[Rfam]
RNA sequence: GACUGGUUCAAGUACAGUGUGGUGUUUACAACUAACUGAUCACGACCAGUUACAGAUUUCUUUAUUCCUUCUCUACUCCCACUGCUUCACUCGACUAGCCAUGU
Numbered sequence: 001g002a003c004u005g006g007u008u009c010a011a012g013u014a015c016a017g018u019g020u021g022g023u024g025u026u027u028a029c030a031a032c033u034a035a036c037u038g039a040u041c042a043c044g045a046c047c048a049g050u051u052a053c054a055g056a057u058u059u060c061u062u063u064a065u066u067c068c069u070u071c072u073c074u075a076c077u078c079c080c081a082c083u084g085c086u087u088c089a090c091u092c093g094a095c096u097a098g099c100c101a102u103g104u
Base pairs, nucleotide, nucleotide: 001100003098004097005096006095007094008093011091016083017082018081019080021078030066031065034062035061